[Rfam]
RNA sequence: CUGCCGGGGCUAAAGUGCUGACAGUGCAGAUAGUGUCCUCUCCGUGCUACCGCACUGUGGGUACUUGCUGCUCCAGCAG
Numbered sequence: 001c002u003g004c005c006g007g008g009g010c011u012a013a014a015g016u017g018c019u020g021a022c023a024g025u026g027c028a029g030a031u032a033g034u035g036u037c038c039u040c041u042c043c044g045u046g047c048u049a050c051c052g053c054a055c056u057g058u059g060g061g062u063a064c065u066u067g068c069u070g071c072u073c074c075a076g077c078a079g
Base pairs, nucleotide, nucleotide: 004076006074007073009071010070013066014065015064016063017062018061019060021058022057023056024055025054026053027052029051031049032048033047
RNA: mir-17 microRNA precursor family
Organism: Lagothrix lagotricha